[Rfam]
RNA sequence: CCGUCCGCCCGCUGGGAUGCCGCACCGGAACGGGGCGCGCCCGGCUACGCUGGCCGGGUGCGCCCUCCGACAGGGGGCGCAAAGCCGACAGCCGUCGCAGCCCCGGGAGUACUUUCAUG
Numbered sequence: 001c002c003g004u005c006c007g008c009c010c011g012c013u014g015g016g017a018u019g020c021c022g023c024a025c026c027g028g029a030a031c032g033g034g035g036c037g038c039g040c041c042c043g044g045c046u047a048c049g050c051u052g053g054c055c056g057g058g059u060g061c062g063c064c065c066u067c068c069g070a071c072a073g074g075g076g077g078c079g080c081a082a083a084g085c086c087g088a089c090a091g092c093c094g095u096c097g098c099a100g101c102c103c104c105g106g107g108a109g110u111a112c113u114u115u116c117a118u119g
Stems, first nucleotide, its partner, number of pairs: 059081004064076004084098002087096003
A member of the RNA family "Streptomyces-metH RNA" from Streptomyces scopuliridis, 119 nucleotides long. By type it is a small RNA.